Record summary:
Shown here is a 102-nucleotide RNA from Silanimonas sp., a member of the family "Glycine riboswitch aptamer". NCBI's taxonomy places the organism under Bacteria, Pseudomonadati, Gammaproteobacteria, Lysobacterales, Silanimonas. On this family, see Mandal et al., Science 2004: "A glycine-dependent riboswitch that uses cooperative binding to control gene expression".

[Rfam]
RNA sequence: GCGAGCAACUCUGGAGAGACCGGUUCGAUCCGGCGCCGAAGGUGCACGCAAAGCGCUACACCGGCUUCGCAAACUCUCAGGCAGAAGGACAGAGGGGCAAGC
Numbered sequence: 001g002c003g004a005g006c007a008a009c010u011c012u013g014g015a016g017a018g019a020c021c022g023g024u025u026c027g028a029u030c031c032g033g034c035g036c037c038g039a040a041g042g043u044g045c046a047c048g049c050a051a052a053g054c055g056c057u058a059c060a061c062c063g064g065c066u067u068c069g070c071a072a073a074c075u076c077u078c079a080g081g082c083a084g085a086a087g088g089a090c091a092g093a094g095g096g097g098c099a100a101g102c
Stems, first nucleotide, its partner, number of pairs: 006097001009094005020033004035082003038078002042076001044074001048070002